This 129-nucleotide RNA from Micromonospora pattaloongensis belongs to the Rfam family "c-di-AMP riboswitch aptamer (ydaO/yuaA leader)".
The base pairs follow the family's consensus structure.
The match comes from Rfam's covariance-model search (80 bits).
Rfam links the family to the GO terms regulation of gene expression and cyclic-di-AMP binding.
[Rfam]
RNA sequence: GCGGUGGCCUCGCCUAAUCGCCCACGGGCGAGCCGGGGAACCAGGUAGGUGGGGUGCAUCCGCGCCAGCGGUAGGGAUCUUCCGUCCCGAACCCGUCAGCUAACCCGGGCGGCGACGGACGGAAGGACU
Numbered sequence: 001g002c003g004g005u006g007g008c009c010u011c012g013c014c015u016a017a018u019c020g021c022c023c024a025c026g027g028g029c030g031a032g033c034c035g036g037g038g039a040a041c042c043a044g045g046u047a048g049g050u051g052g053g054g055u056g057c058a059u060c061c062g063c064g065c066c067a068g069c070g071g072u073a074g075g076g077a078u079c080u081u082c083c084g085u086c087c088c089g090a091a092c093c094c095g096u097c098a099g100c101u102a103a104c105c106c107g108g109g110c111g112g113c114g115a116c117g118g119a120c121g122g123a124a125g126g127a128c129u
Base pairs, nucleotide, nucleotide: 011114012113013112014111018031019030020029033108034107035106036105037104042051043050052094053093054092060071061070062069063068074088075087076086077085